[Rfam]
RNA sequence: UUACCAGCGGUCUCUAAUUCGCUUGGUGCAGGUCGGGAACUGGUUCAGCGAUCGGAUUGCCAGAUGGUUAAACACGAUUGGUGUUGAGGCAAACUAUAAAAAAGAAAGCGAAUUGGAUCCCGCCUUGCAUCAACUGAAUCGGAGGCCGCGGUGAAG
Numbered sequence: 001u002u003a004c005c006a007g008c009g010g011u012c013u014c015u016a017a018u019u020c021g022c023u024u025g026g027u028g029c030a031g032g033u034c035g036g037g038a039a040c041u042g043g044u045u046c047a048g049c050g051a052u053c054g055g056a057u058u059g060c061c062a063g064a065u066g067g068u069u070a071a072a073c074a075c076g077a078u079u080g081g082u083g084u085u086g087a088g089g090c091a092a093a094c095u096a097u098a099a100a101a102a103a104g105a106a107a108g109c110g111a112a113u114u115g116g117a118u119c120c121c122g123c124c125u126u127g128c129a130u131c132a133a134c135u136g137a138a139u140c141g142g143a144g145g146c147c148g149c150g151g152u153g154a155a156g
Stems, first nucleotide, its partner, number of pairs: 013143002017139004023133010034122005040116007
RNA: MIR168 microRNA precursor family
Organism: Salix brachista